[Rfam]
A member of the RNA family "MIR390 microRNA precursor family" from Citrus unshiu, 125 nucleotides long.
RNA sequence: AAGAAGAAUCUGUUAAGCUCAGGAGGGAUAGCGCCAUGGGUGCCAUGAAUAUGGGAAUGAUCUAGGGUUUCAUGAUAAAUAAUGGGCACUGGCGCUAUCCAUCCUGAGUUUCAUGGCUUCUUCUU
Numbered sequence: 001a002a003g004a005a006g007a008a009u010c011u012g013u014u015a016a017g018c019u020c021a022g023g024a025g026g027g028a029u030a031g032c033g034c035c036a037u038g039g040g041u042g043c044c045a046u047g048a049a050u051a052u053g054g055g056a057a058u059g060a061u062c063u064a065g066g067g068u069u070u071c072a073u074g075a076u077a078a079a080u081a082a083u084g085g086g087c088a089c090u091g092g093c094g095c096u097a098u099c100c101a102u103c104c105u106g107a108g109u110u111u112c113a114u115g116g117c118u119u120c121u122u123c124u125u
Base pairs, nucleotide, nucleotide: 010116016110017109018108019107020106021105022104023103024102026100027099028098029097030096031095032094033093034092035091
The family's consensus secondary structure was predicted with WAR.